[Rfam]
This 67-nucleotide RNA sequence from Nicotiana tabacum belongs to the Rfam family "Plastid-clpP 5UTR RNA". The organism belongs to Nicotiana, within Eukaryota. Rfam's curators write: Plastid clpP is a non-coding RNA (ncRNA) recognised in plastids. It was found in the prime untranslated region (5UTR) of a protease complex subunit (clpP) in plastids, suggesting a posible cis-regulatory function. It scores 66 bits against the family's covariance model.

RNA sequence: AAUUCUGUUCGUAGGAACAAAGAGAAGCAGAUUUAUAUUAUAGUUGUACGUACCAAUACGAAUUACG
Numbered sequence: 001a002a003u004u005c006u007g008u009u010c011g012u013a014g015g016a017a018c019a020a021a022g023a024g025a026a027g028c029a030g031a032u033u034u035a036u037a038u039u040a041u042a043g044u045u046g047u048a049c050g051u052a053c054c055a056a057u058a059c060g061a062a063u064u065a066c067g
Stems, first nucleotide, its partner, number of pairs: 003022002006019005043066002050059003